[Rfam]
RNA sequence: AAUAUCUCCAAAGGAGUGAUACUAAGAACACAUGUGAUGGAAUGAGUGCAUUGAUAUGUUGUAUGGUACAACUCUUCAAUGCACAUUUUUUUUCAUUUGUGUUCUCAGGUCACCCCUUUGGAGCACUC
Numbered sequence: 001a002a003u004a005u006c007u008c009c010a011a012a013g014g015a016g017u018g019a020u021a022c023u024a025a026g027a028a029c030a031c032a033u034g035u036g037a038u039g040g041a042a043u044g045a046g047u048g049c050a051u052u053g054a055u056a057u058g059u060u061g062u063a064u065g066g067u068a069c070a071a072c073u074c075u076u077c078a079a080u081g082c083a084c085a086u087u088u089u090u091u092u093u094c095a096u097u098u099g100u101g102u103u104c105u106c107a108g109g110u111c112a113c114c115c116c117u118u119u120g121g122a123g124c125a126c127u128c
Stems, first nucleotide, its partner, number of pairs: 007122002011118004016113004025105008

Overview:
The family of this 128-nucleotide RNA from Centaurea solstitialis is "MIR398 microRNA precursor family". Pairs were carried over by alignment from the consensus structure, which was predicted with WAR. Its family is annotated with miRNA-mediated post-transcriptional gene silencing and RISC complex in the Gene Ontology.